Nucleotides: 271
Base pairs, nucleotide, nucleotide: 006031007030008029012026013025014024037047038046083125084124085122092115093114095111096110097109099107132149133148136147137146138145139144156198157197159194161193206246207245208244209243210242212240215233216232217231218230219229256271259268261266
Number, partner (000 for none) and nucleotide at each position: 001000u002000g003000g004000u005000g006031c007030c008029c009000a010000a011000u012026g013025u014024g015000g016000g017000g018000c019000c020000u021000g022000g023000a024014u025013a026012c027000u028000g029008g030007g031006g032000a033000c034000a035000a036000c037047g038046u039000g040000a041000g042000g043000g044000a045000c046038a047037c048000a049000a050000c051000g052000a053000a054000g055000g056000a057000a058000g059000a060000a061000g062000g063000g064000g065000u066000g067000u068000g069000c070000a071000c072000c073000u074000g075000c076000u077000c078000a079000a080000a081000u082000a083125a084124u085122u086000c087000a088000g089000a090000g091000a092115c093114g094000u095111c096110g097109c098000a099107g100000g101000a102000g103000c104000c105000u106000g107099c108000c109097g110096u111095g112000g113000c114093c115092g116000a117000g118000g119000c120000a121000a122085a123000g124084g125083u126000a127000a128000g129000u130000u131000g132149g133148u134000u135000g136147u137146u138145c139144a140000a141000u142000c143000g144139u145138g146137g147136g148133g149132c150000a151000a152000g153000a154000a155000u156198u157197a158000a159194g160000u161193c162000a163000g164000c165000a166000u167000c168000a169000g170000a171000u172000u173000u174000a175000u176000g177000u178000g179000g180000u181000a182000c183000a184000g185000u186000u187000a188000a189000g190000a191000g192000a193161g194159c195000u196000c197157u198156a199000c200000a201000g202000g203000c204000a205000a206246g207245a208244g209243g210242a211000c212240g213000a214000a215233a216232g217231g218230u219229u220000a221000c222000a223000a224000c225000u226000g227000a228000g229219g230218a231217u232216u233215u234000a235000u236000u237000u238000c239000a240212u241000u242210u243209c244208u245207u246206u247000g248000a249000u250000u251000u252000u253000g254000u255000a256271a257000a258000a259268g260000a261266c262000a263000u264000c265000u266261g267000c268259c269000c270000a271256u
The family of this 271-nucleotide sequence from Nannospalax galili is "Mason-Pfizer monkey virus packaging signal". The family's RNA type in Rfam is cis-regulatory element. The family's consensus secondary structure was predicted with PFOLD. A reference for the family is Harrison et al. (1995), "Secondary structure model of the Mason-Pfizer monkey virus 5' leader sequence: identification of a structural motif common to a variety of retroviruses", J Virol.